[Rfam]
RNA: Eukaryotic large subunit ribosomal RNA, nucleotides 603 to 891
Organism: Closterium sp. NIES-67
RNA sequence: GAGGCCAACGCGGCUGCGAGCCAAUGGGUUGGAAACCACAAUGGCGACAGUGAAAGCGACCCGUGAGAAGGCGGCCUCGUGCUGCCCGCACCACGGACCGCCCCGGGGGCCUCGGCGCCCGGGGUGCGUUGAGUAGUCGCGUUGGGACCCGAAAGAUGGUGAACUAUGCCUGAGCAGGGCGAAGCCAGAGGAAACUCUGGUGGAGGCCCGCAGCGCUACUGACGUGCAAAUCGUUCGUCAGACUUGGGUAUAGGGGCGAAAGACUAAUCGAACCAUCUGGUAGCUGGUU
Numbered sequence: 001g002a003g004g005c006c007a008a009c010g011c012g013g014c015u016g017c018g019a020g021c022c023a024a025u026g027g028g029u030u031g032g033a034a035a036c037c038a039c040a041a042u043g044g045c046g047a048c049a050g051u052g053a054a055a056g057c058g059a060c061c062c063g064u065g066a067g068a069a070g071g072c073g074g075c076c077u078c079g080u081g082c083u084g085c086c087c088g089c090a091c092c093a094c095g096g097a098c099c100g101c102c103c104c105g106g107g108g109g110c111c112u113c114g115g116c117g118c119c120c121g122g123g124g125u126g127c128g129u130u131g132a133g134u135a136g137u138c139g140c141g142u143u144g145g146g147a148c149c150c151g152a153a154a155g156a157u158g159g160u161g162a163a164c165u166a167u168g169c170c171u172g173a174g175c176a177g178g179g180c181g182a183a184g185c186c187a188g189a190g191g192a193a194a195c196u197c198u199g200g201u202g203g204a205g206g207c208c209c210g211c212a213g214c215g216c217u218a219c220u221g222a223c224g225u226g227c228a229a230a231u232c233g234u235u236c237g238u239c240a241g242a243c244u245u246g247g248g249u250a251u252a253g254g255g256g257c258g259a260a261a262g263a264c265u266a267a268u269c270g271a272a273c274c275a276u277c278u279g280g281u282a283g284c285u286g287g288u289u
Stems, first nucleotide, its partner, number of pairs: 005145013020045003025040002028037001030035001050057002062095004070086004097129002099126003103122003109116002148287002151284001155277006164253011175241001177209004184201007213238003218234002221232002255265002